[Rfam]
RNA: Mammalian CPEB3 ribozyme
RNA sequence: AUUUGCAAGCUUGGGGCCAGAGCAGAAGUGCUCAUGGUGCAGCCCUGUCAUUUUCCAACAAAUCUGUGAAUUCUGCU
Numbered sequence: 001a002u003u004u005g006c007a008a009g010c011u012u013g014g015g016g017c018c019a020g021a022g023c024a025g026a027a028g029u030g031c032u033c034a035u036g037g038u039g040c041a042g043c044c045c046u047g048u049c050a051u052u053u054u055c056c057a058a059c060a061a062a063u064c065u066g067u068g069a070a071u072u073c074u075g076c077u
Base pairs, nucleotide, nucleotide: 014045015044016043017042021077022076023075024074025073026072027071028040029039030038049066050065053062054061